Leucine operon leader: a 149-nucleotide sequence from Citrobacter freundii. Rfam's curators write: At least 6 amino acid operons are known to be regulated by attenuation. In each a leader sequence of 150-200 bp is found upstream of the first gene in the operon. This leader sequence can assume two different secondary structures known as the terminator and the anti-terminator structure. For this family Rfam cites "Attenuation in amino acid biosynthetic operons" (Kolter and Yanofsky, Annu Rev Genet, 1982). NCBI's taxonomy places the organism under Bacteria, Pseudomonadota, Gammaproteobacteria, Enterobacterales, Citrobacter freundii complex. Rfam links the family to the GO term leucine biosynthetic process.
RNA sequence: CUGGAGCCUGAUUGAUGACUUACAUUGUUCGUUUUAACGGUCUACUACUACUAAACGCAUCUUCGUUGCGCGGUAGACUGGUGAACGACAUUUAGCAUUACGUCAGCUCCAGUUAAGACAAAAACCCGCGCCGCUGCGCGGGUUUUUUU
Numbered sequence: 001c002u003g004g005a006g007c008c009u010g011a012u013u014g015a016u017g018a019c020u021u022a023c024a025u026u027g028u029u030c031g032u033u034u035u036a037a038c039g040g041u042c043u044a045c046u047a048c049u050a051c052u053a054a055a056c057g058c059a060u061c062u063u064c065g066u067u068g069c070g071c072g073g074u075a076g077a078c079u080g081g082u083g084a085a086c087g088a089c090a091u092u093u094a095g096c097a098u099u100a101c102g103u104c105a106g107c108u109c110c111a112g113u114u115a116a117g118a119c120a121a122a123a124a125c126c127c128g129c130g131c132c133g134c135u136g137c138g139c140g141g142g143u144u145u146u147u148u149u
Stems, first nucleotide, its partner, number of pairs: 004109001006107002010103001013100005025088009048076005056070004121146011
Dot-bracket structure: ...(.((..(..(((((.......(((((((((..............(((((...((((.......)))).)))))...))))))))).......)))))..)..)).)...........(((((((((((....)))))))))))...